RNA sequence: AAAAACACGAAUGAUUCAUCUCGUAUAAUCGCAGAGAUACGGUCUGCAAGUUUCUACCGGUCCACCGUAAAUGGACUGACUACGAGUGAAAGUUUAUUUGAC
Numbered sequence: 001a002a003a004a005a006c007a008c009g010a011a012u013g014a015u016u017c018a019u020c021u022c023g024u025a026u027a028a029u030c031g032c033a034g035a036g037a038u039a040c041g042g043u044c045u046g047c048a049a050g051u052u053u054c055u056a057c058c059g060g061u062c063c064a065c066c067g068u069a070a071a072u073g074g075a076c077u078g079a080c081u082a083c084g085a086g087u088g089a090a091a092g093u094u095u096a097u098u099u100g101a102c
Stems, first nucleotide, its partner, number of pairs: 020086006029049001031047005058078007